RNA: L4-Archaeoglobi ribosomal protein leades
RNA sequence: CUGACGGGCGCGUCCGGGUCAAUUGCGGCCUGCAACACCCGAUCUCCCUUCUCGUACCGCCAUCUCGGACGGUCGAAGAGGGAGAACGCGUUACUAUCAG
Number, nucleotide and partner (000 for none) at each position: 001c100002u099003g098004a097005c000006g000007g000008g091009c090010g089011c088012g087013u086014c000015c041016g040017g039018g038019u000020c000021a000022a000023u035024u034025g033026c032027g031028g000029c000030c000031u027032g026033c025034a024035a023036c000037a000038c018039c017040c016041g015042a000043u085044c084045u083046c082047c081048c080049u079050u078051c000052u076053c075054g000055u000056a000057c000058c000059g000060c000061c000062a000063u000064c000065u000066c000067g000068g000069a000070c000071g000072g000073u000074c000075g053076a052077a000078g050079a049080g048081g047082g046083a045084g044085a043086a013087c012088g011089c010090g009091u008092u000093a000094c000095u000096a000097u004098c003099a002100g001